[Rfam]
RNA sequence: GGGUCGGCAUUAGCUCAAGCGGUUACUUCCUCCCGCUGGACUUUCCAUCCAUCUAAUCCCUGUGCUGGGACCCGCGGGUGCUUUCUGAUCCCUUU
Numbered sequence: 001g002g003g004u005c006g007g008c009a010u011u012a013g014c015u016c017a018a019g020c021g022g023u024u025a026c027u028u029c030c031u032c033c034c035g036c037u038g039g040a041c042u043u044u045c046c047a048u049c050c051a052u053c054u055a056a057u058c059c060c061u062g063u064g065c066u067g068g069g070a071c072c073c074g075c076g077g078g079u080g081c082u083u084u085c086u087g088a089u090c091c092c093u094u095u
Stems, first nucleotide, its partner, number of pairs: 002090006013079004019075004028070004
Description: The record is a 95-nucleotide RNA sequence from Propithecus coquereli, which matches "Vault RNA" in Rfam. This family of RNAs are found as part of the enigmatic vault ribonucleoprotein complex. The complex consists of a major vault protein (MVP), two minor vault proteins (VPARP and TEP1), and several small untranslated RNA molecules. The match comes from Rfam's covariance-model search (58 bits). A reference for the family is Stadler et al. (2009), "Evolution of Vault RNAs", Mol Biol Evol. The family's consensus secondary structure is taken from published work. Taxonomically the source falls in Propithecus (Eukaryota, Opisthokonta, Theria, Lemuriformes). By type it is a non-coding RNA gene.